[Rfam]
Shown here is a 50-nucleotide RNA from Nocardia exalbida, a member of the family "L31-Actinobacteria ribosomal protein leader".

RNA sequence: UCGGUUCCGGUUCACGCUCAGCGCUUGCACGCGCGGGCGACCCGGCGACC
Number, nucleotide and partner (000 for none) at each position: 001u000002c000003g050004g049005u048006u000007c045008c044009g043010g042011u000012u000013c000014a000015c039016g038017c037018u036019c035020a000021g034022c033023g032024c000025u000026u000027g000028c000029a000030c000031g000032c023033g022034c021035g019036g018037g017038c016039g015040a000041c000042c010043c009044g008045g007046c000047g000048a005049c004050c003

Clan: Ribosomal Protein L31 Leader clan.